The family of this 183-nucleotide RNA from Drosophila grimshawi is "Drosophila small cajal body-specific RNA PsiU2-55". It scores 55 bits against the family's covariance model. A reference for the family is Deryusheva and Gall (2013), "Novel small Cajal-body-specific RNAs identified in Drosophila: probing guide RNA function", RNA. Pairs were carried over by alignment from the consensus structure, which was predicted with RNAfold. Rfam links the family to the GO terms Cajal body, RNA processing and nucleolus.
RNA sequence: UGUACAUGGCAGUAGAGUUUCCAGUUGAAGUUGCCUGCUGGCAAACACUUUAUGCCCUGUUAGAGCACACCAAACGCCCAACUUACUACCAAUUUAGCGAUUGUUUCCUUUUGGGAAGUGCAAUGUGAAUGUUCGUUACGAUUUUCUAGACUAAAUCGCGACUGCUGAUAGUUGCAUACAAGC
Dot-bracket structure: ...(((.(((...((.((((((((..(........).)))).))))..))...))).)))................(((...(.(.(.(.......).).).).........)))...((((((..(...((..((..((((((........))))))..)).))...).)))))).......